A member of the RNA family "mir-7563 microRNA precursor family" from Ameiurus melas, 76 nucleotides long. The source organism's lineage runs through Eukaryota, Eumetazoa, Euteleostomi, Actinopteri and Ameiurus. Rfam 15.1 lists 362 matches to the family in 2 species.

[Rfam]
RNA sequence: ACCGUGUACUUACCUACUAUAUAGUAGGUCAAAUACAUGUAUUUCGGCUAUUAUAUAGUAGGCAAGUACGCGGUUU
Numbered sequence: 001a002c003c004g005u006g007u008a009c010u011u012a013c014c015u016a017c018u019a020u021a022u023a024g025u026a027g028g029u030c031a032a033a034u035a036c037a038u039g040u041a042u043u044u045c046g047g048c049u050a051u052u053a054u055a056u057a058g059u060a061g062g063c064a065a066g067u068a069c070g071c072g073g074u075u076u
Stems, first nucleotide, its partner, number of pairs: 001074011013062003017058011029046001031044001033042003